[Rfam]
RNA: FMN riboswitch aptamer (RFN element)
Organism: Bacillus aerolatus
RNA sequence: GUAAUCCUUCGGGGCAGGGUGAAAUUCCCUACCGGCGGUAAUGAGCGCACGCUCUCAGCCCGUGACCCGUAUUCGUUUACGGUGGAUUCGGUGAGAUUCCGAAGCCGACAGUGAUAGUCUGGAUGGGAGAAGGAUGGA
Numbered sequence: 001g002u003a004a005u006c007c008u009u010c011g012g013g014g015c016a017g018g019g020u021g022a023a024a025u026u027c028c029c030u031a032c033c034g035g036c037g038g039u040a041a042u043g044a045g046c047g048c049a050c051g052c053u054c055u056c057a058g059c060c061c062g063u064g065a066c067c068c069g070u071a072u073u074c075g076u077u078u079a080c081g082g083u084g085g086a087u088u089c090g091g092u093g094a095g096a097u098u099c100c101g102a103a104g105c106c107g108a109c110a111g112u113g114a115u116a117g118u119c120u121g122g123a124u125g126g127g128a129g130a131a132g133g134a135u136g137g138a
Stems, first nucleotide, its partner, number of pairs: 004135007017029003031118002033107002035063004058105002067082002087103005109121003